[Rfam]
Nucleotides: 090
Stems, first nucleotide, its partner, number of pairs: 001090001003088004008083007016075004021070004027064002
Number, partner (000 for none) and nucleotide at each position: 001090g002000c003088a004087u005086g006085c007000u008083u009082g010081g011080c012079u013078c014077c015000u016075u017074g018073u019072a020000c021070g022069c023068c024067g025000c026000c027064c028063g029000c030000c031000u032000c033000a034000g035000c036000c037000a038000a039000u040000c041000c042000u043000u044000c045000u046000u047000c048000c049000c050000a051000g052000a053000u054000u055000g056000g057000c058000g059000u060000c061000g062000c063028c064027g065000c066000g067024u068023g069022g070021c071000a072019u073018a074017c075016a076000g077014g078013g079012a080011g081010c082009c083008a084000g085006g086005c087004a088003u089000a090001u
Notes:
mir-160 microRNA precursor family: a 90-nucleotide sequence from Handroanthus impetiginosus. Taxonomically the source falls in Handroanthus (Eukaryota, Viridiplantae, Bignoniaceae, Tabebuia alliance). Rfam 15.1 lists 1,502 matches to the family in 247 species. A reference for the family is Rhoades et al. (2002), "Prediction of plant microRNA targets", Cell. Its family is annotated with RISC complex and miRNA-mediated post-transcriptional gene silencing in the Gene Ontology. Pairs were carried over by alignment from the consensus structure, which was predicted with PFOLD.